[Rfam]
RNA sequence: ACACGUCUUCAGGGCGGGGUGGAACUCCCCACCGGCGGUAGGCGGCUUCGGCCGCGAGCCCGCGAGCGCCCGGCGCGAGCCGGGGUCAGCAGAUCUGGUGCGAAGCCAGGGCCGACGGUCACAGUCCGGAUGAAAGAAGACGUGC
Numbered sequence: 001a002c003a004c005g006u007c008u009u010c011a012g013g014g015c016g017g018g019g020u021g022g023a024a025c026u027c028c029c030c031a032c033c034g035g036c037g038g039u040a041g042g043c044g045g046c047u048u049c050g051g052c053c054g055c056g057a058g059c060c061c062g063c064g065a066g067c068g069c070c071c072g073g074c075g076c077g078a079g080c081c082g083g084g085g086u087c088a089g090c091a092g093a094u095c096u097g098g099u100g101c102g103a104a105g106c107c108a109g110g111g112c113c114g115a116c117g118g119u120c121a122c123a124g125u126c127c128g129g130a131u132g133a134a135a136g137a138a139g140a141c142g143u144g145c
Stems, first nucleotide, its partner, number of pairs: 003143008017029003031125002033114002035063004058112002066090002094110005116128003

The family of this 145-nucleotide RNA sequence from Rubrivivax gelatinosus is "FMN riboswitch aptamer (RFN element)". It scores 103 bits against the family's covariance model.